[Rfam]
RNA sequence: CUCACAGAGCUUGUUGGCAUUCUGUCCACCUCCUUCUUCUUCACCGAACCUUCUCCGUGAGCGGUGGAGGUGGGUGGAUUGCCAAGGAAAGCUCUGUGAG
Numbered sequence: 001c002u003c004a005c006a007g008a009g010c011u012u013g014u015u016g017g018c019a020u021u022c023u024g025u026c027c028a029c030c031u032c033c034u035u036c037u038u039c040u041u042c043a044c045c046g047a048a049c050c051u052u053c054u055c056c057g058u059g060a061g062c063g064g065u066g067g068a069g070g071u072g073g074g075u076g077g078a079u080u081g082c083c084a085a086g087g088a089a090a091g092c093u094c095u096g097u098g099a100g
Stems, first nucleotide, its partner, number of pairs: 011090001014085006023076011
RNA: MIR394 microRNA precursor family